Shown here is a 326-nucleotide RNA from Desulfotomaculum copahuensis, a member of the family "Bacterial RNase P class B".
The family's RNA type in Rfam is ribozyme.
The literature on the family includes a 1998 paper in Annu Rev Biochem by Frank and Pace, "Ribonuclease P: unity and diversity in a tRNA processing ribozyme".
It scores 137 bits against the family's covariance model.
RNA sequence: CGCGGUGAGUGGUCGCUGUCCGGCAGGGCAGAGGAAAGUCGAGACACGCACACCGCAAGGUGUAGUAUGGUGCCCGGCGCAAGCCGGGGCGGGGCGACCCGACGACGGCAAAAGAAACUCCCGCAGUUUCCAGUAGCCAUAAAGUGCCACAGAAACCAGGGCACCGGGCGACCGGUGCGUGCAAGGGUAAACUCCACCAGCGUGCAACCCAAAUAGGCGGGUUUCUUGUGGACCCGCGGGUAGGGGCGCUCCCUUUACGGGAGAGGAAGGGUGCAAAUCCUUCUUAGAAAGAUGACUGCUUGCAAAACAGAAUCUCGCUUACAGCC
Dot-bracket structure: ...(((((((((((.((((((....))))))....[[[.[[[[[((((((((((....)))))....(((((((((((....))))))(((((....)))).)((.(((.....((((.......))))......))).....(((((............(((((((....))))))).......)))..))))))))))))))...(((................................)))...(((((.....)))))(((((((((....)))))))))........)))))))............]]]]]]]].).)))